[Rfam]
RNA: Flavo-1 RNA
RNA sequence: CUUUUGCGUUAAGGAUUGAAGCGGCAUCUUUUUUAUUUGUGAGCUGGGGCUGGGGAGUUGCGAAACAAAUAAAAAAAUACAGCGGAAAGCCUGUUCAAAC
Numbered sequence: 001c002u003u004u005u006g007c008g009u010u011a012a013g014g015a016u017u018g019a020a021g022c023g024g025c026a027u028c029u030u031u032u033u034u035a036u037u038u039g040u041g042a043g044c045u046g047g048g049g050c051u052g053g054g055g056a057g058u059u060g061c062g063a064a065a066c067a068a069a070u071a072a073a074a075a076a077a078u079a080c081a082g083c084g085g086a087a088a089g090c091c092u093g094u095u096c097a098a099a100c
Base pairs, nucleotide, nucleotide: 012092013091014090016088017087021083022082026078027077029075032073033072034071035070036069037068038067039066